Source information: This 110-nucleotide RNA from Streptomyces zhaozhouensis belongs to the Rfam family "Streptomyces RNA 4115". Pairs were carried over by alignment from the consensus structure. From the family's description: Identified by deep sequencing of transcriptome at the end of exponential growth phase. It is annotated as a small RNA.
[Rfam]
RNA sequence: GCGUGGGUCGGCCCGCUGCCCCGAAGGUCGGCGGGUCGGGGGAAGCCGUCGUCUCAUUCCCCGCGGACGGCGGUGUGGUCCGGGAGACAGCCAGCGUCUCCCGGACCGCA
Numbered sequence: 001g002c003g004u005g006g007g008u009c010g011g012c013c014c015g016c017u018g019c020c021c022c023g024a025a026g027g028u029c030g031g032c033g034g035g036u037c038g039g040g041g042g043a044a045g046c047c048g049u050c051g052u053c054u055c056a057u058u059c060c061c062c063g064c065g066g067a068c069g070g071c072g073g074u075g076u077g078g079u080c081c082g083g084g085a086g087a088c089a090g091c092c093a094g095c096g097u098c099u100c101c102c103g104g105a106c107c108g109c110a
Stems, first nucleotide, its partner, number of pairs: 001109002006076001009038010046073009077107012